Background:
This 212-nucleotide part of an RNA from Bodo saltans belongs to the Rfam family "Eukaryotic large subunit ribosomal RNA". Taxonomically the source falls in Bodo (Eukaryota, Discoba, Euglenozoa, Eubodonida). Its Rfam clan is "LSU clan". A search with the family's covariance model found it, with a score of 2031 bits.
Nucleotides: 212
Base pairs, nucleotide, nucleotide: 001194002193003192005190006189007188008187009186010185011184016069077173079171080170081169082168197212198211199210200209
Number, partner (000 for none) and nucleotide at each position: 001194g002193g003192a004000a005190g006189u007188a008187c009186c010185u011184c012000c013000a014000u015000u016069u017000c018000a019000a020000c021000g022000g023000c024000c025000a026000a027000a028000a029000c030000c031000a032000a033000c034000c035000u036000u037000a038000c039000a040000g041000c042000a043000u044000u045000u046000u047000c048000c049000g050000c051000g052000c053000g054000g055000g056000g057000u058000u059000c060000a061000a062000a063000a064000u065000c066000c067000g068000u069016g070000c071000g072000g073000u074000a075000a076000c077173c078000a079171a080170g081169u082168g083000c084000a085000a086000g087000a088000u089000u090000g091000a092000g093000g094000g095000u096000a097000c098000u099000g100000g101000u102000g103000a104000a105000a106000u107000g108000g109000g110000c111000g112000g113000g114000g115000a116000c117000a118000a119000a120000g121000c122000g123000c124000g125000c126000g127000g128000c129000a130000c131000c132000u133000u134000c135000g136000g137000g138000c139000g140000a141000g142000c143000c144000g145000u146000g147000u148000g149000u150000c151000u152000u153000c154000u155000c156000c157000g158000u159000g160000a161000u162000g163000c164000u165000c166000a167000a168082u169081g170080u171079u172000g173077g174000c175000g176000a177000u178000g179000g180000a181000a182000a183000u184011g185010g186009g187008g188007u189006g190005c191000c192003u193002c194001c195000a196000c197212c198211c199210g200209u201000c202000u203000u204000g205000a206000a207000a208000c209200a210199c211198g212197g